[Rfam]
RNA sequence: GUAGUAUAAGAGCCGAAUCUACCUCAAGACCGGGGGAACCAUAUUAAAGGGGUGAAAUUACUUUUGGCAGAAUCUUCUGUUUGUUAAAAGUAGUAGGGGGAACCUCAACCCUAACCCGUCAGCUAACCUCGGAGGCUUAGAGAGGGGCAGU
Numbered sequence: 001g002u003a004g005u006a007u008a009a010g011a012g013c014c015g016a017a018u019c020u021a022c023c024u025c026a027a028g029a030c031c032g033g034g035g036g037a038a039c040c041a042u043a044u045u046a047a048a049g050g051g052g053u054g055a056a057a058u059u060a061c062u063u064u065u066g067g068c069a070g071a072a073u074c075u076u077c078u079g080u081u082u083g084u085u086a087a088a089a090g091u092a093g094u095a096g097g098g099g100g101a102a103c104c105u106c107a108a109c110c111c112u113a114a115c116c117c118g119u120c121a122g123c124u125a126a127c128c129u130c131g132g133a134g135g136c137u138u139a140g141a142g143a144g145g146g147g148c149a150g151u
Base pairs, nucleotide, nucleotide: 011137012136013135014134018029019028020027030132031131032130033129034128035127040049050117051116052115058093059092060091061090062089063088064087065086066085067084068083069082070081071080096111097110098109
The record is a 151-nucleotide sequence from Sporomusaceae bacterium FL31, which matches "c-di-AMP riboswitch aptamer (ydaO/yuaA leader)" in Rfam.
Gene Ontology terms of the family: regulation of gene expression and cyclic-di-AMP binding.